[Rfam]
RNA sequence: CAAGCGGCGUAAAAGGCGCUCGCUAGUGGGCGGUCCGCUGUAAGCGGCCGCCUGCGACACCGUCAAAUUGCGGGAAGUCCCUAAAGCUCACGCUACCAAGCAGGCCGCGAAAGCGAGUCUGUGGCCGGGGUAAUGACCUGGGGUACGGUAAAAACGCGUGAGAUGCAACAAUGGGUAAUCCGCAGCCAAGCCCUAAGUCCGGCGCCCUCGGGCGCUGGAUAUGGGUGCAGUUCAACGACUAAAUGGUGGUGGGUUCCGGCGAGGACGCGUCCUGCGCACCUCUCCGGGGCUUAAGAUAUAGUCUGGCCUUCUGUGAAAAUGGAAG
Numbered sequence: 001c002a003a004g005c006g007g008c009g010u011a012a013a014a015g016g017c018g019c020u021c022g023c024u025a026g027u028g029g030g031c032g033g034u035c036c037g038c039u040g041u042a043a044g045c046g047g048c049c050g051c052c053u054g055c056g057a058c059a060c061c062g063u064c065a066a067a068u069u070g071c072g073g074g075a076a077g078u079c080c081c082u083a084a085a086g087c088u089c090a091c092g093c094u095a096c097c098a099a100g101c102a103g104g105c106c107g108c109g110a111a112a113g114c115g116a117g118u119c120u121g122u123g124g125c126c127g128g129g130g131u132a133a134u135g136a137c138c139u140g141g142g143g144u145a146c147g148g149u150a151a152a153a154a155c156g157c158g159u160g161a162g163a164u165g166c167a168a169c170a171a172u173g174g175g176u177a178a179u180c181c182g183c184a185g186c187c188a189a190g191c192c193c194u195a196a197g198u199c200c201g202g203c204g205c206c207c208u209c210g211g212g213c214g215c216u217g218g219a220u221a222u223g224g225g226u227g228c229a230g231u232u233c234a235a236c237g238a239c240u241a242a243a244u245g246g247u248g249g250u251g252g253g254u255u256c257c258g259g260c261g262a263g264g265a266c267g268c269g270u271c272c273u274g275c276g277c278a279c280c281u282c283u284c285c286g287g288g289g290c291u292u293a294a295g296a297u298a299u300a301g302u303c304u305g306g307c308c309u310u311c312u313g314u315g316a317a318a319a320u321g322g323a324a325g
Stems, first nucleotide, its partner, number of pairs: 058251005064245002069184006079175003185231002190226004198219009235304001237303005253290007261282004310323005
Record summary
This 325-nucleotide RNA sequence from Fusarium piperis belongs to the Rfam family "Group I catalytic intron". NCBI's taxonomy places the organism under Eukaryota, Dikarya, saccharomyceta, Pezizomycotina, Fusarium solani species complex. From the family's description: Group I catalytic introns are large self-splicing ribozymes.